[Rfam]
RNA sequence: GUUGAGUGGGAAUAGAGUUUAUAAUAGUUAGAGUUCUUAAAAAGUUAAUUUAACAGCUUUUGAAGCUAUUUAAAAAAUUAAAAAAUACCAACUAAAUAAUUGAUUCACUACUAAAUCCCCACCAGAAGAUUCAUCUGAUGGGGAUUUUUUA
Numbered sequence: 001g002u003u004g005a006g007u008g009g010g011a012a013u014a015g016a017g018u019u020u021a022u023a024a025u026a027g028u029u030a031g032a033g034u035u036c037u038u039a040a041a042a043a044g045u046u047a048a049u050u051u052a053a054c055a056g057c058u059u060u061u062g063a064a065g066c067u068a069u070u071u072a073a074a075a076a077a078u079u080a081a082a083a084a085a086u087a088c089c090a091a092c093u094a095a096a097u098a099a100u101u102g103a104u105u106c107a108c109u110a111c112u113a114a115a116u117c118c119c120c121a122c123c124a125g126a127a128g129a130u131u132c133a134u135c136u137g138a139u140g141g142g143g144a145u146u147u148u149u150u151a
Stems, first nucleotide, its partner, number of pairs: 008108001010106003050084002055079002058076001060074002063071002086098002113147009123137004

About this RNA: Shown here is a 151-nucleotide RNA from Streptococcus merionis, a member of the family "Listeria sRNA rli38". The family's RNA type in Rfam is small RNA. The organism belongs to Streptococcus, within Bacteria. The literature on the family includes a 2009 paper in Nature by Toledo-Arana et al., "The Listeria transcriptional landscape from saprophytism to virulence". A search with the family's covariance model found it, with a score of 50 bits.